[Rfam]
RNA sequence: AUGUUAACAUUACAUCUCUCUUGUAUAAGCUCGAUAAUUUGGAUUGAGCGUAUCUACAGGCAACCGUAAAUUGCCCCAGGCUACAAGAGGCAACGCAAGACCG
Numbered sequence: 001a002u003g004u005u006a007a008c009a010u011u012a013c014a015u016c017u018c019u020c021u022u023g024u025a026u027a028a029g030c031u032c033g034a035u036a037a038u039u040u041g042g043a044u045u046g047a048g049c050g051u052a053u054c055u056a057c058a059g060g061c062a063a064c065c066g067u068a069a070a071u072u073g074c075c076c077c078a079g080g081c082u083a084c085a086a087g088a089g090g091c092a093a094c095g096c097a098a099g100a101c102c103g
Stems, first nucleotide, its partner, number of pairs: 018089008029049007059075005
The record is a 103-nucleotide RNA sequence from Paenibacillus sp. FSL H7-0357, which matches "Purine riboswitch aptamer" in Rfam. The family is grouped with related families in Rfam's "Purine riboswitches". The source organism's lineage runs through Bacteria, Bacillati, Bacilli, Paenibacillaceae and Paenibacillus. Pairs were carried over by alignment from the consensus structure, which is taken from published work. The match comes from Rfam's covariance-model search (60 bits). Rfam links the family to the GO term purine nucleobase biosynthetic process.